[Rfam]
The record is a 139-nucleotide RNA from Vibrio cholerae, which matches "FMN riboswitch aptamer (RFN element)" in Rfam.
The organism belongs to Vibrio cholerae, within Bacteria.
Pairs were carried over by alignment from the consensus structure, which is taken from published work.
Gene Ontology term of the family: FMN binding.
RNA sequence: CAAUAUUCUCAGGGCGGGGCGAAAUUCCCCACCGGUGGUAUGCCGCAAGGCGAGCCCACGAGCGCUCGAUUCGUCGAGGUCAGCAGAUCUGGUGAGAAGCCAGAGCCGACGGUUACAGUCCGGAUGAGAGAGAAUGACA
Numbered sequence: 001c002a003a004u005a006u007u008c009u010c011a012g013g014g015c016g017g018g019g020c021g022a023a024a025u026u027c028c029c030c031a032c033c034g035g036u037g038g039u040a041u042g043c044c045g046c047a048a049g050g051c052g053a054g055c056c057c058a059c060g061a062g063c064g065c066u067c068g069a070u071u072c073g074u075c076g077a078g079g080u081c082a083g084c085a086g087a088u089c090u091g092g093u094g095a096g097a098a099g100c101c102a103g104a105g106c107c108g109a110c111g112g113u114u115a116c117a118g119u120c121c122g123g124a125u126g127a128g129a130g131a132g133a134a135u136g137a138c139a
Stems, first nucleotide, its partner, number of pairs: 004136007017029003031119002033108002035059004054106002062084002088104005110122003